RNA sequence: CAGGAUAAAUGGCAAACUUGUCGAAAGGCAAGGACGCAAAGCUACAGGGCCUUCUGUAUGAUGGCAGCCAGCUACCGGU
Number, nucleotide and partner (000 for none) at each position: 001c000002a000003g000004g000005a000006u000007a000008a000009a000010u000011g000012g037013c036014a000015a000016a000017c032018u031019u030020g029021u028022c027023g000024a000025a000026a000027g022028g021029c020030a019031a018032g017033g000034a000035c000036g013037c012038a000039a000040a073041g072042c071043u070044a000045c000046a000047g069048g068049g065050c064051c063052u000053u000054c000055u000056g000057u000058a000059u000060g000061a000062u000063g051064g050065c049066a000067g000068c048069c047070a043071g042072c041073u040074a000075c000076c000077g000078g000079u000